Shown here is a 118-nucleotide sequence, a member of the family "Actinobacteria sRNA Ms_IGR-7". A reference for the family is Li et al. (2013), "Identification of small RNAs in Mycobacterium smegmatis using heterologous Hfq", RNA. Pairs were carried over by alignment from the consensus structure. By type it is a small RNA.
RNA sequence: CGGAAGUGCCUUUCUUGUGCUGAAACGAUUUUAGUGUGAGAACUCAAAUCAUCCCAGCUCAGAGGGCACUUUCUUUACUCCGACACCCGCCCGGAACCUAUCUCAUCGGUGGAUCGAG
Number, nucleotide and partner (000 for none) at each position: 001c000002g073003g072004a071005a070006g069007u068008g067009c066010c065011u064012u063013u062014c000015u000016u061017g060018u000019g000020c057021u056022g055023a000024a000025a000026c000027g050028a049029u048030u000031u046032u000033a044034g043035u042036g000037u000038g000039a000040g000041a000042a035043c034044u033045c000046a031047a000048a029049u028050c027051a000052u000053c000054c000055c022056a021057g020058c000059u000060c017061a016062g013063a012064g011065g010066g009067c008068a007069c006070u005071u004072u003073c002074u000075u000076u000077a000078c000079u000080c000081c000082g000083a000084c000085a000086c000087c000088c000089g000090c000091c000092c000093g000094g000095a000096a000097c000098c116099u000100a114101u113102c000103u112104c111105a110106u000107c000108g000109g000110u105111g104112g103113a101114u100115c000116g098117a000118g000